Description:
Shown here is a 105-nucleotide RNA sequence from endosymbiont 'TC1' of Trimyema compressum, a member of the family "Glycine riboswitch aptamer".

[Rfam]
RNA sequence: UGAAUAUCAGCAGGAGAGUGGUGAAAAGCCACACCGAUGGAGCAACUUGUUAACAAUGCGAGUUAAUUGAGGAAUCUCUCAGGUACAAGGUACUGUUGGUGGACA
Number, nucleotide and partner (000 for none) at each position: 001u000002g000003a000004a000005u000006a100007u099008c098009a097010g096011c095012a094013g093014g000015a000016g000017a000018g000019u031020g030021g029022u028023g000024a000025a000026a000027a000028g022029c021030c020031a019032c000033a084034c083035c082036g080037a079038u000039g000040g078041a077042g076043c000044a000045a000046c071047u070048u069049g068050u000051u000052a000053a000054c000055a000056a000057u000058g000059c000060g000061a000062g000063u000064u000065a000066a000067u000068u049069g048070a047071g046072g000073a000074a000075u000076c042077u041078c040079u037080c036081a000082g035083g034084u033085a000086c000087a000088a000089g000090g000091u000092a000093c013094u012095g011096u010097u009098g008099g007100u006101g000102g000103a000104c000105a000
A search with the family's covariance model found it, with a score of 56 bits.